[Rfam]
RNA: SL2 RNA
RNA sequence: GGUUUUUACCCAGUAUCACAAGGUACUAGGAAGUUCUGACCGGUUCUUCGGAGCUGUGUUAGAUAACCGAAAUUUUUUGAAUACGCUCCUGGGGUUAUCCGGGAGCGUUAU
Numbered sequence: 001g002g003u004u005u006u007u008a009c010c011c012a013g014u015a016u017c018a019c020a021a022g023g024u025a026c027u028a029g030g031a032a033g034u035u036c037u038g039a040c041c042g043g044u045u046c047u048u049c050g051g052a053g054c055u056g057u058g059u060u061a062g063a064u065a066a067c068c069g070a071a072a073u074u075u076u077u078u079g080a081a082u083a084c085g086c087u088c089c090u091g092g093g094g095u096u097a098u099c100c101g102g103g104a105g106c107g108u109u110a111u
Stems, first nucleotide, its partner, number of pairs: 008034001009030002013026004037061004041056005085109001087107001089105002093100002